The record is a 251-nucleotide RNA from Calderihabitans maritimus, which matches "HNH endonuclease-associated RNA and ORF (HEARO) RNA" in Rfam. On this family, see Weinberg et al., Nature 2009: "Exceptional structured noncoding RNAs revealed by bacterial metagenome analysis". It is annotated as a non-coding RNA gene.
RNA sequence: GUCAUAGACCCCACGCCUAAAGGCGGGGGCUUGUUGGGGUAAAUCCCGCAAGCCCGUCUAUGACCAGCCUCAGUGCCCGACCCGAAGGACAAGGGGAUGACGGCGCUACGUUGGCGGCAGGUUAAAGACCCACUCCGGGAUGCUCCUCCAGUCCCGGACCCUGGAAGCUCUAGCUGCAGACAACCUUCGGGGGAUGGGCGAAACGGGCUAGAGCAUAUGCCGGCUGCCAACAUUGGCGAGGAGGGUGCUAA
Numbered sequence: 001g002u003c004a005u006a007g008a009c010c011c012c013a014c015g016c017c018u019a020a021a022g023g024c025g026g027g028g029g030c031u032u033g034u035u036g037g038g039g040u041a042a043a044u045c046c047c048g049c050a051a052g053c054c055c056g057u058c059u060a061u062g063a064c065c066a067g068c069c070u071c072a073g074u075g076c077c078c079g080a081c082c083c084g085a086a087g088g089a090c091a092a093g094g095g096g097a098u099g100a101c102g103g104c105g106c107u108a109c110g111u112u113g114g115c116g117g118c119a120g121g122u123u124a125a126a127g128a129c130c131c132a133c134u135c136c137g138g139g140a141u142g143c144u145c146c147u148c149c150a151g152u153c154c155c156g157g158a159c160c161c162u163g164g165a166a167g168c169u170c171u172a173g174c175u176g177c178a179g180a181c182a183a184c185c186u187u188c189g190g191g192g193g194a195u196g197g198g199c200g201a202a203a204c205g206g207g208c209u210a211g212a213g214c215a216u217a218u219g220c221c222g223g224c225u226g227c228c229a230a231c232a233u234u235g236g237c238g239a240g241g242a243g244g245g246u247g248c249u250a251a
Stems, first nucleotide, its partner, number of pairs: 001064008010029002012026001016023002030052004067237003072107005110231009120221001130164002134158008144245006167214009184197002187194002